[Rfam]
The record is a 150-nucleotide RNA from Streptomyces palmae, which matches "gntR-DTE RNA" in Rfam.
RNA sequence: CGGGUGAUGGCCGCGGCGGCCACUUAGCGGCGGGUGAACCUGUCCCGCCCGCGUGCCAGCUCUGGAGAACACCGCUGGGGCCCGUCCCCUGCGGUGCCACCUGGUGCGCGCCGCCCUGCUGGCGUCAGAGCAGUGACGAUGACGCGCCCG
Numbered sequence: 001c002g003g004g005u006g007a008u009g010g011c012c013g014c015g016g017c018g019g020c021c022a023c024u025u026a027g028c029g030g031c032g033g034g035u036g037a038a039c040c041u042g043u044c045c046c047g048c049c050c051g052c053g054u055g056c057c058a059g060c061u062c063u064g065g066a067g068a069a070c071a072c073c074g075c076u077g078g079g080g081c082c083c084g085u086c087c088c089c090u091g092c093g094g095u096g097c098c099a100c101c102u103g104g105u106g107c108g109c110g111c112c113g114c115c116c117u118g119c120u121g122g123c124g125u126c127a128g129a130g131c132a133g134u135g136a137c138g139a140u141g142a143c144g145c146g147c148c149c150g
Stems, first nucleotide, its partner, number of pairs: 015115006051109009063099003070096005
The organism belongs to Streptomyces, within Bacteria.